[Rfam]
RNA: mir-26 microRNA precursor family
Organism: Merluccius polli
RNA sequence: CCAUUUCCUGAAACAAGUAAUCAAGAAUAGGCCGUGCGGUUGUGAACCAGCCUAUCCUGGAUUACUUGAACCAAGCUAUGG
Numbered sequence: 001c002c003a004u005u006u007c008c009u010g011a012a013a014c015a016a017g018u019a020a021u022c023a024a025g026a027a028u029a030g031g032c033c034g035u036g037c038g039g040u041u042g043u044g045a046a047c048c049a050g051c052c053u054a055u056c057c058u059g060g061a062u063u064a065c066u067u068g069a070a071c072c073a074a075g076c077u078a079u080g081g
Base pairs, nucleotide, nucleotide: 002080003079004078007075009073010072014068015067016066017065018064019063020062021061022060024058025057027055028054029053030052031051032050